Rfam assigns this 205-nucleotide RNA from Oryza barthii to the family "MIR812 microRNA precursor family". A search with the family's covariance model found it, with a score of 80 bits.
RNA sequence: AAAAACUCAAUUUCUGGAUUUUCGUAUCUAACGUUUGACCGUCCGUCUUAUUUAAAAAAAUUAUAAAAAAAUUUAAAAAGAUAAGUCAUGUAUAAAGUAUUAUUCAUAUUUUAUCUUCUAACAAUAAUAAAAUACUAAUCAUAAAAAAAAUCAUAUAAAAUAGACGAUCAAACUUUGGACACGAAAAUUAAAGAAUUGAGUGUUA
Numbered sequence: 001a002a003a004a005a006c007u008c009a010a011u012u013u014c015u016g017g018a019u020u021u022u023c024g025u026a027u028c029u030a031a032c033g034u035u036u037g038a039c040c041g042u043c044c045g046u047c048u049u050a051u052u053u054a055a056a057a058a059a060a061u062u063a064u065a066a067a068a069a070a071a072u073u074u075a076a077a078a079a080g081a082u083a084a085g086u087c088a089u090g091u092a093u094a095a096a097g098u099a100u101u102a103u104u105c106a107u108a109u110u111u112u113a114u115c116u117u118c119u120a121a122c123a124a125u126a127a128u129a130a131a132a133u134a135c136u137a138a139u140c141a142u143a144a145a146a147a148a149a150a151u152c153a154u155a156u157a158a159a160a161u162a163g164a165c166g167a168u169c170a171a172a173c174u175u176u177g178g179a180c181a182c183g184a185a186a187a188u189u190a191a192a193g194a195a196u197u198g199a200g201u202g203u204u205a
Stems, first nucleotide, its partner, number of pairs: 027179005034172005040166004045161002048158004